[Rfam]
RNA sequence: GGGCAGUGAUGACGAACUACGUUUCUCGAUUCUGAAUAAGGUUUAUUCGAUAAACAUGGACCUCGUCAAUUUGAUGAAAGUGUUUAUGCGUGUCUGAGCCCU
Numbered sequence: 001g002g003g004c005a006g007u008g009a010u011g012a013c014g015a016a017c018u019a020c021g022u023u024u025c026u027c028g029a030u031u032c033u034g035a036a037u038a039a040g041g042u043u044u045a046u047u048c049g050a051u052a053a054a055c056a057u058g059g060a061c062c063u064c065g066u067c068a069a070u071u072u073g074a075u076g077a078a079a080g081u082g083u084u085u086a087u088g089c090g091u092g093u094c095u096g097a098g099c100c101c102u
Stems, first nucleotide, its partner, number of pairs: 001101004